Shown here is a 141-nucleotide sequence from Pipistrellus kuhlii, a member of the family "small Cajal body-specific RNA 17". From the family's description: scaRNAs are a specific class of small nuclear RNAs which localise to the Cajal bodies and guide the modification of RNA polymerase II transcribed spliceosomal RNAs U1, U2, U4, U5 and U12. The complete human U12-22/U4-8 scaRNA is composed of two tandem C/D box domains (termed U12-22 and U4-8). The family has 6 seed sequences and 262 matches in Rfam 15.1. Pairs were carried over by alignment from the consensus structure, which is taken from published work. The source organism's lineage runs through Eukaryota, Teleostomi, Laurasiatheria, Vespertilionidae and Pipistrellus.
RNA sequence: GCCCCGGGUCCCCAAUGCAGCCCCCCGAUGAGCCUGCAGUAUUUUCCUUAUAUGAUUGGGCCCCAUGGCUGGCGGCGACGCUAGCCCGGAGCCUAAGAGGAUUAUAAUGGGUCAGGCGAAGUGGGGCCGGGGAACCGGGGC
Number, nucleotide and partner (000 for none) at each position: 001g141002c140003c139004c000005c138006g000007g136008g135009u134010c000011c132012c131013c130014a000015a000016u000017g000018c000019a000020g127021c126022c125023c124024c123025c000026c000027g000028a000029u000030g000031a000032g000033c000034c000035u000036g000037c000038a000039g000040u000041a000042u000043u000044u000045u000046c000047c000048u000049u000050a000051u000052a000053u000054g000055a000056u096057u095058g094059g093060g092061c091062c000063c089064c088065a000066u000067g000068g085069c084070u083071g082072g081073c080074g079075g000076c000077g000078a000079c074080g073081c072082u071083a070084g069085c068086c000087c000088g064089g063090a000091g061092c060093c059094u058095a057096a056097g000098a000099g000100g000101a000102u000103u000104a000105u000106a000107a000108u000109g000110g000111g000112u000113c000114a000115g000116g000117c000118g000119a000120a000121g000122u000123g024124g023125g022126g021127c020128c000129g000130g013131g012132g011133a000134a009135c008136c007137g000138g005139g003140g002141c001